Rfam assigns this 90-nucleotide RNA from Cetobacterium sp. 2A to the family "Selenocysteine transfer RNA". It scores 64 bits against the family's covariance model. A reference for the family is Mizutani and Goto (2000), "Eukaryotic selenocysteine tRNA has the 9/4 secondary structure", FEBS Lett. Lineage of the source: Bacteria > Fusobacteriati > Fusobacteriota > Fusobacteriaceae > Cetobacterium.
[Rfam]
RNA sequence: GGAAACGGAUGGGUAACUGGUGUUCCCAGCAGUCUUCAAAACUGCCUUGGCGGCUUUGGUCGUUGGUAGGUUCAAUUCCUACACGUUUCC
Numbered sequence: 001g002g003a004a005a006c007g008g009a010u011g012g013g014u015a016a017c018u019g020g021u022g023u024u025c026c027c028a029g030c031a032g033u034c035u036u037c038a039a040a041a042c043u044g045c046c047u048u049g050g051c052g053g054c055u056u057u058g059g060u061c062g063u064u065g066g067u068a069g070g071u072u073c074a075a076u077u078c079c080u081a082c083a084c085g086u087u088u089c090c
Base pairs, nucleotide, nucleotide: 001090002089003088004087005086006085007084008082011027012026013025015024016023017022029045030044031043032042033041048065049064050063051062052061067081068080069079070078